[Rfam]
RNA sequence: UCCGGGGGCCUCUUAGAACAGAACCCGUCGAACCAGGUCAGGACCGGAAGGUAGCAGCCUUAAGAUUUCGGUUUUGUGCUUCGAGACAACCUCCGGGUUU
Numbered sequence: 001u002c003c004g005g006g007g008g009c010c011u012c013u014u015a016g017a018a019c020a021g022a023a024c025c026c027g028u029c030g031a032a033c034c035a036g037g038u039c040a041g042g043a044c045c046g047g048a049a050g051g052u053a054g055c056a057g058c059c060u061u062a063a064g065a066u067u068u069c070g071g072u073u074u075u076g077u078g079c080u081u082c083g084a085g086a087c088a089a090c091c092u093c094c095g096g097g098u099u100u
Stems, first nucleotide, its partner, number of pairs: 004094005011086004018077006027066003035060004043052003

A member of the RNA family "Bacterial small signal recognition particle RNA" from Chlamydiales bacterium SCGC AB-751-O23, 100 nucleotides long. Its Rfam clan is "SRP clan". The base pairs follow the family's consensus structure, which is taken from published work. On this family, see Rosenblad et al., RNA Biol 2009: "Kinship in the SRP RNA family". The signal recognition particle (SRP) is a universally conserved ribonucleoprotein involved in the co-translational targeting of proteins to membranes. By type it is a non-coding RNA gene.